[Rfam]
RNA: L17-Actino-Proteobacteria ribosomal protein leader
Organism: Peterkaempfera bronchialis
RNA sequence: CCUGCGGGCACCGUGCCCGCAGGCCCUCUCCGGUACCUGACACGGCCGGAGCAG
Numbered sequence: 001c002c003u004g005c006g007g008g009c010a011c012c013g014u015g016c017c018c019g020c021a022g023g024c025c026c027u028c029u030c031c032g033g034u035a036c037c038u039g040a041c042a043c044g045g046c047c048g049g050a051g052c053a054g
Stems, first nucleotide, its partner, number of pairs: 001023009026054002028051007